[Rfam]
RNA sequence: CGCAUGCGGGUUCGCGCGCUGUCCGGGGAGACAUCCCGGCAGACUUCGCUCCGGUGGUCUAAGUCCUUGGACUUAAACCGCAAAACCCGCAGAGGCUUAACCGGAAAAGGACUUUGAAAAUGG
Numbered sequence: 001c002g003c004a005u006g007c008g009g010g011u012u013c014g015c016g017c018g019c020u021g022u023c024c025g026g027g028g029a030g031a032c033a034u035c036c037c038g039g040c041a042g043a044c045u046u047c048g049c050u051c052c053g054g055u056g057g058u059c060u061a062a063g064u065c066c067u068u069g070g071a072c073u074u075a076a077a078c079c080g081c082a083a084a085a086c087c088c089g090c091a092g093a094g095g096c097u098u099a100a101c102c103g104g105a106a107a108a109g110g111a112c113u114u115u116g117a118a119a120a121u122g123g
Base pairs, nucleotide, nucleotide: 001094003092005091006090007089008088009087010086012085016049017048024038025037027036056079057078058077060075061074062073063072064071065070
A member of the RNA family "rpsB sRNA" from Dongia mobilis, 123 nucleotides long. The family's RNA type in Rfam is small RNA. A reference for the family is Meyer et al. (2009), "Identification of candidate structured RNAs in the marine organism 'Candidatus Pelagibacter ubique'", BMC Genomics.